[Rfam]
RNA: mir-393 microRNA precursor family
Organism: Camphora micrantha
RNA sequence: GAUGGGAGAUUCCAAAGGGAUCGCACGAUCCAGAAUCGUCCACGCCCUCUCUUUUCGAAUGGGAAUUGGGGACAAGGGGAUCAAUGCGAUCCCUUUGGAAUCCUCCAC
Numbered sequence: 001g002a003u004g005g006g007a008g009a010u011u012c013c014a015a016a017g018g019g020a021u022c023g024c025a026c027g028a029u030c031c032a033g034a035a036u037c038g039u040c041c042a043c044g045c046c047c048u049c050u051c052u053u054u055u056c057g058a059a060u061g062g063g064a065a066u067u068g069g070g071g072a073c074a075a076g077g078g079g080a081u082c083a084a085u086g087c088g089a090u091c092c093c094u095u096u097g098g099a100a101u102c103c104u105c106c107a108c
Base pairs, nucleotide, nucleotide: 003107004106005105006104008102009101010100011099012098013097014096015095016094017093018092019091020090021089023087024086025085027082028081029080030079031078